[Rfam]
RNA sequence: GUUCAGUGAUGAUUUCCCCCAUGCGUGUCAGCUGAUCCCAGUGCUUCCUUGUGCUUCUGCUUGGCGUUCUGCCUGCAGGCUGCCCGUCUGGGUCUGGCACAGGGUUUCUGGGCAUGAUCAGAGCCCUCUGACUGAGAAC
Number, nucleotide and partner (000 for none) at each position: 001g139002u138003u137004c136005a000006g000007u000008g000009a000010u000011g000012a000013u000014u000015u000016c000017c000018c000019c000020c000021a000022u000023g000024c000025g000026u000027g000028u000029c000030a000031g000032c000033u000034g000035a000036u000037c000038c000039c000040a000041g000042u000043g000044c000045u000046u000047c104048c103049u102050u101051g100052u099053g098054c097055u096056u000057c000058u000059g000060c000061u000062u000063g000064g000065c000066g000067u000068u000069c000070u000071g000072c000073c000074u000075g000076c000077a000078g000079g000080c000081u000082g000083c000084c000085c000086g000087u000088c000089u000090g000091g000092g000093u000094c000095u000096g055097g054098c053099a052100c051101a050102g049103g048104g047105u000106u000107u000108c000109u000110g000111g000112g000113c000114a000115u000116g000117a000118u000119c000120a000121g000122a000123g000124c000125c000126c000127u000128c000129u000130g000131a000132c000133u000134g000135a000136g004137a003138a002139c001

The family of this 139-nucleotide RNA sequence from Pelodiscus sinensis is "Small nucleolar RNA SNORD10". Rfam links the family to the GO terms nucleolus and RNA processing. The base pairs follow the family's consensus structure, which was predicted with WAR. For this family Rfam cites "RNomics: an experimental approach that identifies 201 candidates for novel, small, non-messenger RNAs in mouse" (Huttenhofer et al., EMBO J, 2001).